[Rfam]
RNA sequence: GGACCUUUAGCUCAGUUGCUGUUAGAGCUCCCGGCUCAUAACCGGGCGGUCGUAGGUUCGAGUCCUACAAGGAUCC
Numbered sequence: 001g002g003a004c005c006u007u008u009a010g011c012u013c014a015g016u017u018g019c020u021g022u023u024a025g026a027g028c029u030c031c032c033g034g035c036u037c038a039u040a041a042c043c044g045g046g047c048g049g050u051c052g053u054a055g056g057u058u059c060g061a062g063u064c065c066u067a068c069a070a071g072g073a074u075c076c
Stems, first nucleotide, its partner, number of pairs: 001075002004072004010028004030046005052068005

Overview: The family of this 76-nucleotide RNA from Vagococcus teuberi is "tRNA". The base pairs follow the family's consensus structure, which is taken from published work. Lineage of the source: Bacteria > Bacillota > Lactobacillales > Enterococcaceae > Vagococcus. The family's RNA type in Rfam is transfer RNA.